A member of the RNA family "Ribosomal protein L10 leader" from Longibaculum muris, 119 nucleotides long. The match comes from Rfam's covariance-model search (58 bits). The base pairs follow the family's consensus structure, which was predicted with CMfinder.
RNA sequence: UUAGUCGCAAUCAAUAUACCGUAGACAGCAACGGGGAAACCUUAAUUAUGUUGCCGAGGUGAUAUUGUCAACUCACAUUGACAAAACUCCCUCGUUUUAGGGAGUUUUUUAACGGAUAU
Dot-bracket structure: ...........................((((((((....)).......))))))................................((((((......))))))...............

The literature on the family includes a 2008 paper in Biochemistry by Iben and Draper, "Specific interactions of the L10(L12)4 ribosomal protein complex with mRNA, rRNA, and L11".